The record is an 80-nucleotide RNA sequence from Cucurbita maxima, which matches "mir-172 microRNA precursor family" in Rfam. On this family, see Mette et al., Plant Physiol 2002: "Short RNAs can identify new candidate transposable element families in Arabidopsis". Rfam's curators write: mir-172 has been experimentally verified in Arabidopsis thaliana. This family is thought to target mRNAs coding for APETALA2-like transcription factors. Pairs were carried over by alignment from the consensus structure, which was predicted with PFOLD.
[Rfam]
RNA sequence: UUGUUUGCUGUUGCUGCAUCAUCAAGAUUCACAGUCUCUUCCAGGUUUGAGAAUCUUGAUGAUGCUGCAGCGGCCAUUAA
Numbered sequence: 001u002u003g004u005u006u007g008c009u010g011u012u013g014c015u016g017c018a019u020c021a022u023c024a025a026g027a028u029u030c031a032c033a034g035u036c037u038c039u040u041c042c043a044g045g046u047u048u049g050a051g052a053a054u055c056u057u058g059a060u061g062a063u064g065c066u067g068c069a070g071c072g073g074c075c076a077u078u079a080a
Stems, first nucleotide, its partner, number of pairs: 010071005016065015032049002